[Rfam]
RNA sequence: UUUUAAACAUAAGUCUAUCCCAUGCAAUAUUUGGGAUAUACUUAUACUAAAA
Numbered sequence: 001u002u003u004u005a006a007a008c009a010u011a012a013g014u015c016u017a018u019c020c021c022a023u024g025c026a027a028u029a030u031u032u033g034g035g036a037u038a039u040a041c042u043u044a045u046a047c048u049a050a051a052a
Base pairs, nucleotide, nucleotide: 006048009045010044011043012042014040016038018036019035020034021033022031